[Rfam]
RNA sequence: AUCCUAUACAGAUGUAUCAACGCUAGUCAAUUGGGCAUCUCCCUGUAGGAUUAAGUUUAUUUAUCAGAAGCUCUGGUAACAAUUUUCAUUGCGUGGCUACGGUCGAAAUGAGAUGAGUCAGAGUGGAAUAGGUUAUCCGUAAGACCUUGAGUUGGAAAACUCUAAAUUGGAGCUAGAGAUAUGGAUUUCUUAAAUUUUGCAUUUUCUGGUUACGGAGGC
Numbered sequence: 001a002u003c004c005u006a007u008a009c010a011g012a013u014g015u016a017u018c019a020a021c022g023c024u025a026g027u028c029a030a031u032u033g034g035g036c037a038u039c040u041c042c043c044u045g046u047a048g049g050a051u052u053a054a055g056u057u058u059a060u061u062u063a064u065c066a067g068a069a070g071c072u073c074u075g076g077u078a079a080c081a082a083u084u085u086u087c088a089u090u091g092c093g094u095g096g097c098u099a100c101g102g103u104c105g106a107a108a109u110g111a112g113a114u115g116a117g118u119c120a121g122a123g124u125g126g127a128a129u130a131g132g133u134u135a136u137c138c139g140u141a142a143g144a145c146c147u148u149g150a151g152u153u154g155g156a157a158a159a160c161u162c163u164a165a166a167u168u169g170g171a172g173c174u175a176g177a178g179a180u181a182u183g184g185a186u187u188u189c190u191u192a193a194a195u196u197u198u199g200c201a202u203u204u205u206c207u208g209g210u211u212a213c214g215g216a217g218g219c
Stems, first nucleotide, its partner, number of pairs: 001051008010040006017034004022028001070124008084113007095104002130147005136216006142168001149162005173209007181202003